[Rfam]
RNA sequence: GGGACCAAUGAUAAUGACUGUUGGGGUAUGAGUCAGUGAGGUUGAAUAACAGUUUGUAUCUGGAAAUCUGAGGUCCAA
Numbered sequence: 001g002g003g004a005c006c007a008a009u010g011a012u013a014a015u016g017a018c019u020g021u022u023g024g025g026g027u028a029u030g031a032g033u034c035a036g037u038g039a040g041g042u043u044g045a046a047u048a049a050c051a052g053u054u055u056g057u058a059u060c061u062g063g064a065a066a067u068c069u070g071a072g073g074u075c076c077a078a
Base pairs, nucleotide, nucleotide: 002076003075004074005073006072
Notes
A member of the RNA family "Small nucleolar RNA SNORD113/SNORD114 family", 78 nucleotides long. The imprinted human domain at 14q32 contains two clusters of tandemly repeated small nucleolar RNAs named 14q(I) and 14q(II) snoRNAs. These two clusters are named SNORD113 and SNORD114 respectively in the HGNC approved gene symbol nomenclature. The snoRNAs found in both clusters are clearly related and are represented here by a single family. These snoRNAs are intron encoded and are processed from the tissue-specific non-coding human MEG8 RNA, which lies downstream of the imprinted genes DLK1 and GTL2. snoRNAs 14q(I) and 14q(II) differ from previously identified C/D box snoRNAs in their expression profiles and lack of complementarity to rRNA and snRNA. Homologues of these snoRNAs are found in the imprinted non-coding mouse transcript Rian, and in the rat non-coding Bsr (brain-specific repetitive) RNA. Rfam 15.1 lists 5,721 matches to the family in 142 species. The literature on the family includes a 2002 paper in Hum Mol Genet by Cavaille et al., "Identification of tandemly-repeated C/D snoRNA genes at the imprinted human 14q32 domain reminiscent of those at the Prader-Willi/Angelman syndrome region". The sequence is in the family's curated seed alignment. Pairs were carried over by alignment from the consensus structure, which is taken from published work. Rfam classes the family as a C/D-box small nucleolar RNA.